[Rfam]
RNA: Small nucleolar RNA SNORD21
RNA sequence: GCUAUAUGAUGAUACCCCAGUGACUGAGCAGUCUGUAGUUGGUCCUCGGUCUGUGUAUGAUAUAUGUCAUUGUUUCAAGACGGGACUGAUGGCAGC
Dot-bracket structure: ((((.....................................................................................))))...